RNA sequence: GUUGGCGCAACUUGGCACAAGCGCUGCAUUGACUCUCCCCACAGCACAUACCACCCGGCCUUCAACGACGAAGGGUGGGUAUUCCCGAGAGAACGGGACCGGACAAAGGCGUCCUCACCAGGCAACUGGCGAGGCGCC
Numbered sequence: 001g002u003u004g005g006c007g008c009a010a011c012u013u014g015g016c017a018c019a020a021g022c023g024c025u026g027c028a029u030u031g032a033c034u035c036u037c038c039c040c041a042c043a044g045c046a047c048a049u050a051c052c053a054c055c056c057g058g059c060c061u062u063c064a065a066c067g068a069c070g071a072a073g074g075g076u077g078g079g080u081a082u083u084c085c086c087g088a089g090a091g092a093a094c095g096g097g098a099c100c101g102g103a104c105a106a107a108g109g110c111g112u113c114c115u116c117a118c119c120a121g122g123c124a125a126c127u128g129g130c131g132a133g134g135c136g137c138c
Base pairs, nucleotide, nucleotide: 012106013105014104015027016026017025053080054079055078056077057076059074060073062071063070083098084097085096086095087094108138109137110136111135112134113133116131118129119128120127121126

The record is a 138-nucleotide RNA sequence from Pseudomonas sp. MRSN 12121, which matches "Pseudomonas sRNA P11" in Rfam. Taxonomically the source falls in Pseudomonas (Bacteria, Pseudomonadota, Gammaproteobacteria, Pseudomonadaceae). Rfam describes the family as follows. This small RNA (sRNA) was computationally identified in the genome of the opportunistic pathogen Pseudomonas aeruginosa and its expression verified by northern blot analysis. P11 is located between a putative threonine protein kinase and putative nitrate reductase and appears to be conserved in several Pseudomonas species. P11 has a predicted Rho independent terminator at the 3'end but the function of P11 is unknown.